Background:
The family of this 90-nucleotide RNA from Microbacterium marinum is "Glycine riboswitch aptamer". The match comes from Rfam's covariance-model search (41 bits). The organism belongs to Microbacterium, within Bacteria. Rfam describes the family as follows. This family represents the bacterial glycine riboswitch.
[Rfam]
RNA sequence: UCACUCUGAAAAGCGGCAUCCACAUGCCCGCCGACGGGGCAAGCGGGCACCGCCCGCGAAAUCUCUCAGGCCUAUGACAGAGGGGGAGGA
Numbered sequence: 001u002c003a004c005u006c007u008g009a010a011a012a013g014c015g016g017c018a019u020c021c022a023c024a025u026g027c028c029c030g031c032c033g034a035c036g037g038g039g040c041a042a043g044c045g046g047g048c049a050c051c052g053c054c055c056g057c058g059a060a061a062u063c064u065c066u067c068a069g070g071c072c073u074a075u076g077a078c079a080g081a082g083g084g085g086g087a088g089g090a
Base pairs, nucleotide, nucleotide: 001085002084004082005081006080007079008078015028016027017026018025030071031070032069033067034066037065038064039063043057044056045055046054